Small nucleolar RNA SNORA5: a 136-nucleotide RNA from Ramphastos sulfuratus. Its Rfam clan is "SNORA5 clan". About the family: ACA5 is a member of the H/ACA class of snoRNA that guide the sites of modification of uridines to pseudouridines. Rfam 15.1 lists 2,226 matches to the family in 629 species. Rfam classes the family as an H/ACA-box small nucleolar RNA. It scores 61 bits against the family's covariance model. The family's consensus secondary structure was predicted with RNAfold.
RNA sequence: UGCAGCCCUGUCAAAUUCGUUCCCUGCCUCCUCCAUGGCAGGGAGCGGCCAACCAGCUGCCACAGCACCUUGUGUUUCCACGAGCUCCAUGUUCCCUUCCAGUGGGACACUGGAGGGUAAAGUGACACAGACACAU
Numbered sequence: 001u002g003c004a005g006c007c008c009u010g011u012c013a014a015a016u017u018c019g020u021u022c023c024c025u026g027c028c029u030c031c032u033c034c035a036u037g038g039c040a041g042g043g044a045g046c047g048g049c050c051a052a053c054c055a056g057c058u059g060c061c062a063c064a065g066c067a068c069c070u071u072g073u074g075u076u077u078c079c080a081c082g083a084g085c086u087c088c089a090u091g092u093u094c095c096c097u098u099c100c101a102g103u104g105g106g107a108c109a110c111u112g113g114a115g116g117g118u119a120a121a122g123u124g125a126c127a128c129a130g131a132c133a134c135a136u
Stems, first nucleotide, its partner, number of pairs: 002060004018047011072128004078124001085115005
Dot-bracket structure: .((((............(((((((((((........))))))))))).........))))...........((((..(......(((((.....................)))))........)))))........